[Rfam]
Vault RNA: a 101-nucleotide sequence from Poecilia formosa. Lineage of the source: Eukaryota > Gnathostomata > Teleostomi > Teleostei > Poecilia. Pairs were carried over by alignment from the consensus structure, which is taken from published work. Rfam classes the family as a non-coding RNA gene.

RNA sequence: GCGCUGGUUUAGCUCAGUGGUUACUUCGUUCAACUCUUCUAAACAGAAAUGUUGUCCCUCCCCUAACCGGGAUCAAACCACGGGCGCUGUCCAGCCUUUUG
Numbered sequence: 001g002c003g004c005u006g007g008u009u010u011a012g013c014u015c016a017g018u019g020g021u022u023a024c025u026u027c028g029u030u031c032a033a034c035u036c037u038u039c040u041a042a043a044c045a046g047a048a049a050u051g052u053u054g055u056c057c058c059u060c061c062c063c064u065a066a067c068c069g070g071g072a073u074c075a076a077a078c079c080a081c082g083g084g085c086g087c088u089g090u091c092c093a094g095c096c097u098u099u100u101g
Stems, first nucleotide, its partner, number of pairs: 003095005012085004017081004025077002028074001
Rfam's curators write: This family of RNAs are found as part of the enigmatic vault ribonucleoprotein complex. The complex consists of a major vault protein (MVP), two minor vault proteins (VPARP and TEP1), and several small untranslated RNA molecules. It has been suggested that the vault complex is involved in drug resistance.